A member of the RNA family "Fibro-purF RNA", 75 nucleotides long.
The family's RNA type in Rfam is cis-regulatory element.
Pairs were carried over by alignment from the consensus structure, which is taken from published work.

[Rfam]
RNA sequence: GUCUGUUUCCCCGCUUGCACCCGUCCGGGUGGGCUACGACCCUUGAGGUAGGGGAAACAAUCACUUCUACGAGGC
Numbered sequence: 001g002u003c004u005g006u007u008u009c010c011c012c013g014c015u016u017g018c019a020c021c022c023g024u025c026c027g028g029g030u031g032g033g034c035u036a037c038g039a040c041c042c043u044u045g046a047g048g049u050a051g052g053g054g055a056a057a058c059a060a061u062c063a064c065u066u067c068u069a070c071g072a073g074g075c
Stems, first nucleotide, its partner, number of pairs: 005058007018031005039049003
Dot-bracket structure: ....(((((((......(((((....))))).......(((.....)))..))))))).................